[Rfam]
Bacterial RNase P class A: a 418-nucleotide RNA sequence from Nocardia farcinica. Taxonomically the source falls in Nocardia farcinica (Bacteria, Bacillati, Actinomycetota, Mycobacteriales). Pairs were carried over by alignment from the consensus structure, which is taken from published work.
RNA sequence: CGAGUUGGUCGGGCGGCCGCGGCGACGGGAACGGGCACGCUGGUGUCGCAGCCCGGCGCCGAGGAAAGUCCGGACUCCACAGAGCAGGGCGGUUGCUAACGGCAACCCGGGGUGACCCGCGGGACAGUGCCACAGAAAACAGACCGCCCACGGCCCUGCGGGGCCGUGCGGUGAGGGUGAAACGGUGCGGUAAGAGCGCACCAGCGCCCCGGGUGACCGGGGCGGCUCGGUAAACCCCGCCCGGAGCAAGGUCGAAGGUCGCAUUCGUUCGCGAGUGCGGCUGCGCAGGCGCUCGAGGGCUGCUCGCCCGAGCCUGCGGGUGGACCGCUCGAGGCACCCGGCGACGGUGUGCCCAGAUGGAUGGCCGCCACCCGGUGCGAACCGGGGACAGGAUCCGGCUUACAGACCAACUCGUCCG
Number, nucleotide and partner (000 for none) at each position: 001c414002g413003a412004g411005u410006u409007g408008g407009u406010c405011g403012g369013g368014c367015g366016g365017c364018c363019g000020c061021g060022g059023c058024g057025a000026c055027g054028g053029g000030a000031a000032c000033g000034g000035g000036c000037a000038c000039g000040c000041u000042g000043g000044u000045g000046u000047c000048g000049c000050a000051g000052c000053c028054c027055g026056g000057c024058g023059c022060c021061g020062a000063g000064g000065a000066a401067a400068g399069u000070c398071c397072g396073g395074a394075c246076u245077c244078c243079a000080c000081a000082g305083a304084g303085c302086a000087g242088g241089g240090c239091g238092g106093u105094u104095g103096c102097u000098a000099a000100c000101g000102g096103c095104a094105a093106c092107c121108c119109g118110g117111g116112g000113u000114g000115a000116c111117c110118c109119g108120c000121g107122g237123g236124a000125c000126a000127g235128u234129g231130c230131c229132a000133c000134a000135g000136a000137a000138a000139a000140c000141a000142g000143a000144c176145c175146g172147c171148c170149c000150a000151c166152g165153g164154c163155c162156c161157u000158g000159c000160g000161g156162g155163g154164c153165c152166g151167u000168g000169c000170g148171g147172u146173g000174a000175g145176g144177g000178u000179g000180a000181a000182a000183c000184g202185g201186u200187g199188c198189g197190g000191u000192a000193a000194g000195a000196g000197c189198g188199c187200a186201c185202c184203a000204g226205c224206g223207c222208c221209c220210c219211g218212g217213g000214u000215g000216a000217c212218c211219g210220g209221g208222g207223c206224g205225g000226c204227u000228c000229g131230g130231u129232a000233a000234a128235c127236c123237c122238c091239g090240c089241c088242c087243g078244g077245a076246g075247c000248a000249a000250g326251g325252u324253c323254g000255a000256a000257g000258g000259u000260c000261g000262c000263a000264u000265u000266c000267g000268u000269u000270c000271g000272c000273g000274a000275g000276u000277g000278c000279g000280g000281c000282u000283g000284c000285g317286c316287a315288g314289g313290c312291g000292c000293u000294c000295g000296a000297g309298g308299g307300c306301u000302g085303c084304u083305c082306g300307c299308c298309c297310g000311a000312g290313c289314c288315u287316g286317c285318g000319g000320g000321u000322g000323g253324a252325c251326c250327g000328c000329u000330c000331g000332a000333g353334g352335c351336a350337c349338c347339c346340g345341g000342c000343g000344a000345c340346g339347g338348u000349g337350u336351g335352c334353c333354c000355a000356g000357a000358u000359g000360g000361a000362u000363g018364g017365c016366c015367g014368c013369c012370a000371c000372c000373c000374g000375g000376u000377g000378c000379g000380a000381a000382c000383c000384g000385g000386g000387g000388a000389c000390a000391g000392g000393a000394u074395c073396c072397g071398g070399c068400u067401u066402a000403c011404a000405g010406a009407c008408c007409a006410a005411c004412u003413c002414g001415u000416c000417c000418g000